[Rfam]
RNA: Bacterial large subunit ribosomal RNA, nucleotides 1616 to 1939
RNA sequence: CGGGAGAAGGGUAGUUAAGGAACUCGGCAAGUUGAUCCCGUAACUUCGGAAGAAGGGAUGCCACAGAGAUGUGGCCGCAGAGAAUAGGCCCAGGCGACUGUUUAGCAAAAACACAGCUCUCUGCUAAAUCGAAAGAUGAAGUAUAGGGGGUGACACCUGCCCGGUGCUGGAAGGUUAAGAGGAGAUGUGAGAGCAUUGAAUUGAAGCCCCAGUAAACGGCGGCCGUAACUAUAACGGUCCUAAGGUAGCGAAAUUCCUUGUCGGGUAAGUUCCGACCCGCACGAAUGGUGUAACGAUCUGGGCACUGUCUCAAUUACCCGCCCG
Numbered sequence: 001c002g003g004g005a006g007a008a009g010g011g012u013a014g015u016u017a018a019g020g021a022a023c024u025c026g027g028c029a030a031g032u033u034g035a036u037c038c039c040g041u042a043a044c045u046u047c048g049g050a051a052g053a054a055g056g057g058a059u060g061c062c063a064c065a066g067a068g069a070u071g072u073g074g075c076c077g078c079a080g081a082g083a084a085u086a087g088g089c090c091c092a093g094g095c096g097a098c099u100g101u102u103u104a105g106c107a108a109a110a111a112c113a114c115a116g117c118u119c120u121c122u123g124c125u126a127a128a129u130c131g132a133a134a135g136a137u138g139a140a141g142u143a144u145a146g147g148g149g150g151u152g153a154c155a156c157c158u159g160c161c162c163g164g165u166g167c168u169g170g171a172a173g174g175u176u177a178a179g180a181g182g183a184g185a186u187g188u189g190a191g192a193g194c195a196u197u198g199a200a201u202u203g204a205a206g207c208c209c210c211a212g213u214a215a216a217c218g219g220c221g222g223c224c225g226u227a228a229c230u231a232u233a234a235c236g237g238u239c240c241u242a243a244g245g246u247a248g249c250g251a252a253a254u255u256c257c258u259u260g261u262c263g264g265g266u267a268a269g270u271u272c273c274g275a276c277c278c279g280c281a282c283g284a285a286u287g288g289u290g291u292a293a294c295g296a297u298c299u300g301g302g303c304a305c306u307g308u309c310u311c312a313a314u315u316a317c318c319c320g321c322c323c324g
Stems, first nucleotide, its partner, number of pairs: 001324004009319008018310003035059005044049001060075006076080001088303007095295002099113003116151008124141001128137003154290004159220003164217002166213005173208003179202002184197005221239006240244001250277001260276006